[Rfam]
A member of the RNA family "tRNA" from Gossypium barbadense, 72 nucleotides long. It is annotated as a transfer RNA. Taxonomically the source falls in Gossypium (Eukaryota, Embryophyta, Pentapetalae, rosids). Rfam 15.1 lists 5,335,975 matches to the family in 14,413 species.
RNA sequence: GCCCCUAUAGCUCAGUGGUAGAGCGUCAGCCUUGUAAACUGAAGGUAUGUAGUUCGAUCCUGCAUGGGGGCA
Numbered sequence: 001g002c003c004c005c006u007a008u009a010g011c012u013c014a015g016u017g018g019u020a021g022a023g024c025g026u027c028a029g030c031c032u033u034g035u036a037a038a039c040u041g042a043a044g045g046u047a048u049g050u051a052g053u054u055c056g057a058u059c060c061u062g063c064a065u066g067g068g069g070g071c072a
Stems, first nucleotide, its partner, number of pairs: 001071007010024004026042004048064005

Background: From the family's description: Transfer RNA (tRNA) molecules are approximately 80 nucleotides in length.